[Rfam]
RNA sequence: GGACAGGGGGGUUCCUGCCGGCCGGCAGGGCCUGUCCGAUCAGGUCGCGUACGUGCGUGACCAGUGGUUGUCGCUCGGGGGUGAUCGCCG
Number, nucleotide and partner (000 for none) at each position: 001g037002g036003a035004c034005a033006g032007g031008g000009g000010g000011g000012u000013u030014c029015c028016u027017g026018c025019c024020g000021g000022c000023c000024g019025g018026c017027a016028g015029g014030g013031c007032c006033u005034g004035u003036c002037c001038g000039a000040u000041c000042a000043g062044g061045u060046c059047g058048c057049g056050u055051a000052c000053g000054u000055g050056c049057g048058u047059g046060a045061c044062c043063a000064g000065u000066g000067g000068u000069u000070g000071u000072c000073g000074c000075u000076c000077g000078g000079g000080g000081g000082u000083g000084a000085u000086c000087g000088c000089c000090g000
che1 RNA: a 90-nucleotide RNA sequence from Streptomyces sp. LaPpAH-165. Pairs were carried over by alignment from the consensus structure, which is taken from published work.